[Rfam]
RNA sequence: GUUGGGACCAGUCGGGACCAGUCAUGGGCAAAAGAAACGUGUUUUGUCCACUGCUGCAGUCUUCCUAGAGCGAAGUGGAGGUCUCUGUCUGCUUUAGGACAGCCAACUAAACCGGAUCGUUCCCCUCCAUACACA
Numbered sequence: 001g002u003u004g005g006g007a008c009c010a011g012u013c014g015g016g017a018c019c020a021g022u023c024a025u026g027g028g029c030a031a032a033a034g035a036a037a038c039g040u041g042u043u044u045u046g047u048c049c050a051c052u053g054c055u056g057c058a059g060u061c062u063u064c065c066u067a068g069a070g071c072g073a074a075g076u077g078g079a080g081g082u083c084u085c086u087g088u089c090u091g092c093u094u095u096a097g098g099a100c101a102g103c104c105a106a107c108u109a110a111a112c113c114g115g116a117u118c119g120u121u122c123c124c125c126u127c128c129a130u131a132c133a134c135a
Base pairs, nucleotide, nucleotide: 004065005064006063009059011057012056025050026049027048028047029046034043035042077128078127079126080125081124085119087117088116089115091113093111094110095109096108097107

The family of this 135-nucleotide sequence from Caloenas nicobarica is "Small Cajal body specific RNA 3". NCBI's taxonomy places the organism under Eukaryota, Craniata, Teleostomi, Euteleostomi, Caloenas. A reference for the family is Darzacq et al. (2002), "Cajal body-specific small nuclear RNAs: a novel class of 2'-O-methylation and pseudouridylation guide RNAs", EMBO J. The family has 23 seed sequences and 642 matches in Rfam 15.1. From the family's description: scaRNAs are a specific class of small nuclear RNAs which localise to the Cajal bodies and guide the modification of RNA polymerase II transcribed spliceosomal RNAs U1, U2, U4, U5 and U12. The base pairs follow the family's consensus structure, which was predicted with RNAalifold.